[Rfam]
RNA sequence: GCAAUUAGCAUUGCUACAUAUAACAUUGGCUCGUAUGAGAAAUUGACGGCCAAUGCUAAUGUAGCAAUUCCUCUUACA
Number, nucleotide and partner (000 for none) at each position: 001g077002c000003a075004a074005u000006u000007a000008g070009c000010a068011u067012u066013g065014c064015u063016a062017c061018a060019u059020a000021u000022a057023a000024c055025a054026u053027u052028g051029g050030c049031u048032c000033g000034u000035a000036u000037g000038a000039g000040a000041a000042a000043u000044u000045g000046a000047c000048g031049g030050c029051c028052a027053a026054u025055g024056c000057u022058a000059a019060u018061g017062u016063a015064g014065c013066a012067a011068u010069u000070c008071c000072u000073c000074u004075u003076a000077c001078a000

MIR6145 microRNA precursor family: a 78-nucleotide RNA from Nicotiana tabacum. The organism belongs to Nicotiana, within Eukaryota. A search with the family's covariance model found it, with a score of 61 bits.